Rfam assigns this 65-nucleotide RNA sequence from Lachnospiraceae bacterium A2 to the family "int-alpA RNA". A search with the family's covariance model found it, with a score of 43 bits. Taxonomically the source falls in Lachnospiraceae (Bacteria, Bacillati, Bacillota, Lachnospirales). It is annotated as a small RNA. About the family: Acidobacteria (1 example), Planctomycetes (1 example), Proteobacteria.
RNA sequence: UCUGGGGAUAGGCUGACGAGCCGAAAAGUACAAGCCUUAGUACCUGCCCCGGUUUGACAUAAGGC
Numbered sequence: 001u002c003u004g005g006g007g008a009u010a011g012g013c014u015g016a017c018g019a020g021c022c023g024a025a026a027a028g029u030a031c032a033a034g035c036c037u038u039a040g041u042a043c044c045u046g047c048c049c050c051g052g053u054u055u056g057a058c059a060u061a062a063g064g065c
Stems, first nucleotide, its partner, number of pairs: 002052006011022004028043004034065005